[Rfam]
RNA sequence: GCCCGGGUAGCUCAGUCGGUAGAGAGUUUGGCUUUUAACCAGACGGUCCAGGGUUCGAGCCCCUGCUCGGGCG
Numbered sequence: 001g002c003c004c005g006g007g008u009a010g011c012u013c014a015g016u017c018g019g020u021a022g023a024g025a026g027u028u029u030g031g032c033u034u035u036u037a038a039c040c041a042g043a044c045g046g047u048c049c050a051g052g053g054u055u056c057g058a059g060c061c062c063c064u065g066c067u068c069g070g071g072c073g
Stems, first nucleotide, its partner, number of pairs: 001072007011024003027043005049065005
Dot-bracket structure: (((((((...(((........)))..(((((.......))))).....(((((.......)))))))))))).

This 73-nucleotide sequence from Caligus rogercresseyi belongs to the Rfam family "tRNA". The family's RNA type in Rfam is transfer RNA. Pairs were carried over by alignment from the consensus structure, which is taken from published work. Gene Ontology term of the family: triplet codon-amino acid adaptor activity. It scores 60 bits against the family's covariance model.